A member of the RNA family "c-di-GMP-I riboswitch aptamer" from Leptothrix cholodnii, 93 nucleotides long.
The match comes from Rfam's covariance-model search (64 bits).
Lineage of the source: Bacteria > Burkholderiales > Sphaerotilaceae > Leptothrix > Leptothrix cholodnii.
Rfam describes the family as follows. GEMM was predicted in a large-scale screen for bacterial structured RNA regulatory elements.

RNA sequence: UCAAUCACAAGGCAAACGGCGUGAAAGCGCCGGACGCAAAGCCACGGGCCCUCAGGCGAUUCAUCCGAUCGCACGGGCAGCCGGGUUGCUUGC
Numbered sequence: 001u002c003a004a005u006c007a008c009a010a011g012g013c014a015a016a017c018g019g020c021g022u023g024a025a026a027g028c029g030c031c032g033g034a035c036g037c038a039a040a041g042c043c044a045c046g047g048g049c050c051c052u053c054a055g056g057c058g059a060u061u062c063a064u065c066c067g068a069u070c071g072c073a074c075g076g077g078c079a080g081c082c083g084g085g086u087u088g089c090u091u092g093c
Stems, first nucleotide, its partner, number of pairs: 012037002017032006040087004045083003048078003056072006